[Rfam]
t44 RNA: a 133-nucleotide sequence from Moritella sp. Urea-trap-13. The source organism's lineage runs through Bacteria, Pseudomonadota, Alteromonadales, Moritellaceae and Moritella. It is annotated as a small RNA. This family consists of a number of bacterial RNA genes of between 135 and 170 bases in length. The t44 gene has been identified in several species of enteric bacteria but homologs have also been identified in Pseudomonas and Coxiella species. The t44 gene is found between the map and rpsB genes in all species in the full alignment apart from Shigella flexneri. The function of this RNA is unknown.

RNA sequence: CACAUAUUUUAUAUAAAUCACACACACAUCGUCACAUUUGUCGGGGUGCUUUUGUUUUGUUUGGUUAGUGCUUGAUUUUAUUACGCUAACUUAGAUUCAAAGGUCGAAAAAAUGGGAUGUGUGGAGGCCUAAC
Numbered sequence: 001c002a003c004a005u006a007u008u009u010u011a012u013a014u015a016a017a018u019c020a021c022a023c024a025c026a027c028a029u030c031g032u033c034a035c036a037u038u039u040g041u042c043g044g045g046g047u048g049c050u051u052u053u054g055u056u057u058u059g060u061u062u063g064g065u066u067a068g069u070g071c072u073u074g075a076u077u078u079u080a081u082u083a084c085g086c087u088a089a090c091u092u093a094g095a096u097u098c099a100a101a102g103g104u105c106g107a108a109a110a111a112a113u114g115g116g117a118u119g120u121g122u123g124g125a126g127g128c129c130u131a132a133c
Stems, first nucleotide, its partner, number of pairs: 023123008035114005041107003048104007